[Rfam]
RNA sequence: GUGGCGGUGCACUCCCAGGUGGCGUCGGCGUCGAGCAGGGCGUGGUCGCCGUACCGGUCGCCGUCGCCGAGCACGGCGACGUCGACGUCCUCGCCGUACUUGCCCGCGGCGGUCUGCCGGACGCGGCCGUGGGCGAUCAGAUGGAUCUCCCCGGCGGGCGUGCCGCGCUCCACCAGCACCUCACCGGCGCGGAAGUCGCGCUGGACGCACCGGUCGGCGAGCGCGGUCAGCACGUCGUCCUCGUCGAAGCCGCGCAGGACGGGCAGUUCGCCGAGCUCGCGGGGGAUGACGCGGACGUCCGCUCCGUCCUGGAGGAACUCGAUGCGGCCGUCCCCCACGGUGUACGUGAGGCGGCGGUUGACCCGGUAGGCACCGCCCUUGGUCUCCACCCAGGGGAGCAUCCGCAGCAGCCAGCGGGAGGUGAUCUCCUGCAUCUGCGGGGCCGACUUGGUCGUGGUGGCGAGGUUGCGGGCAGCCGUCGUGCCCAGGCUGGACCGCGGUUGCGG
Numbered sequence: 001g002u003g004g005c006g007g008u009g010c011a012c013u014c015c016c017a018g019g020u021g022g023c024g025u026c027g028g029c030g031u032c033g034a035g036c037a038g039g040g041c042g043u044g045g046u047c048g049c050c051g052u053a054c055c056g057g058u059c060g061c062c063g064u065c066g067c068c069g070a071g072c073a074c075g076g077c078g079a080c081g082u083c084g085a086c087g088u089c090c091u092c093g094c095c096g097u098a099c100u101u102g103c104c105c106g107c108g109g110c111g112g113u114c115u116g117c118c119g120g121a122c123g124c125g126g127c128c129g130u131g132g133g134c135g136a137u138c139a140g141a142u143g144g145a146u147c148u149c150c151c152c153g154g155c156g157g158g159c160g161u162g163c164c165g166c167g168c169u170c171c172a173c174c175a176g177c178a179c180c181u182c183a184c185c186g187g188c189g190c191g192g193a194a195g196u197c198g199c200g201c202u203g204g205a206c207g208c209a210c211c212g213g214u215c216g217g218c219g220a221g222c223g224c225g226g227u228c229a230g231c232a233c234g235u236c237g238u239c240c241u242c243g244u245c246g247a248a249g250c251c252g253c254g255c256a257g258g259a260c261g262g263g264c265a266g267u268u269c270g271c272c273g274a275g276c277u278c279g280c281g282g283g284g285g286a287u288g289a290c291g292c293g294g295a296c297g298u299c300c301g302c303u304c305c306g307u308c309c310u311g312g313a314g315g316a317a318c319u320c321g322a323u324g325c326g327g328c329c330g331u332c333c334c335c336c337a338c339g340g341u342g343u344a345c346g347u348g349a350g351g352c353g354g355c356g357g358u359u360g361a362c363c364c365g366g367u368a369g370g371c372a373c374c375g376c377c378c379u380u381g382g383u384c385u386c387c388a389c390c391c392a393g394g395g396g397a398g399c400a401u402c403c404g405c406a407g408c409a410g411c412c413a414g415c416g417g418g419a420g421g422u423g424a425u426c427u428c429c430u431g432c433a434u435c436u437g438c439g440g441g442g443c444c445g446a447c448u449u450g451g452u453c454g455u456g457g458u459g460g461c462g463a464g465g466u467u468g469c470g471g472g473c474a475g476c477c478g479u480c481g482u483g484c485c486c487a488g489g490c491u492g493g494a495c496c497g498c499g500g501u502u503g504c505g506g
Stems, first nucleotide, its partner, number of pairs: 006390004011385001014382002018328001021325001025322004031316002036311007045304001048302002051299001058229001060227005065111004075103001077102003083096002086093001118221001122217001127212001129210002131206001134203002140197001143196001149192002154188002157185002160182001161178002165174001234296003241289005250282005256277002262269001329342004351379001353377005362370002391431007399423003403418001405416001407415001437476002440473001443470001446467001447465003451461002477505002480503002484499001486497001488495001
Shown here is a 506-nucleotide RNA from Streptomyces longispororuber, a member of the family "Saccharopolyspora sRNA 350".
Rfam 15.1 lists 1,170 matches to the family in 705 species.
The family's RNA type in Rfam is antisense RNA.
The literature on the family includes a 2013 paper in PLoS One by Liu et al., "Prediction and characterization of small non-coding RNAs related to secondary metabolites in Saccharopolyspora erythraea".
Rfam links the family to the GO term regulation of secondary metabolite biosynthetic process.
The base pairs follow the family's consensus structure, which was predicted with RNAfold.